Shown here is a 126-nucleotide RNA sequence from Calditerricola satsumensis, a member of the family "SAM riboswitch aptamer (S box leader)". From the family's description: The SAM riboswitch is found upstream of a number of genes which code for proteins involved in methionine or cysteine biosynthesis in Gram-positive bacteria. Lineage of the source: Bacteria > Bacillati > Bacillota > Caryophanales > Calditerricola.

RNA sequence: CUCUUAUCGAGAGUGGCGGAGGGACUGGCCCGAUGAAGCCCGGCAACCCCUGCUUCCCCAUUCGGAAGCGGGAAGGUGCCAACUCCUGCAGAACGGCUGCGAAGGCGGCGUUCUGAGAGAUAAGAG
Numbered sequence: 001c002u003c004u005u006a007u008c009g010a011g012a013g014u015g016g017c018g019g020a021g022g023g024a025c026u027g028g029c030c031c032g033a034u035g036a037a038g039c040c041c042g043g044c045a046a047c048c049c050c051u052g053c054u055u056c057c058c059c060a061u062u063c064g065g066a067a068g069c070g071g072g073a074a075g076g077u078g079c080c081a082a083c084u085c086c087u088g089c090a091g092a093a094c095g096g097c098u099g100c101g102a103a104g105g106c107g108g109c110g111u112u113c114u115g116a117g118a119g120a121u122a123a124g125a126g
Stems, first nucleotide, its partner, number of pairs: 001126008013041001015040003021031003025088001027086002042080004047076002049072008084118001089115006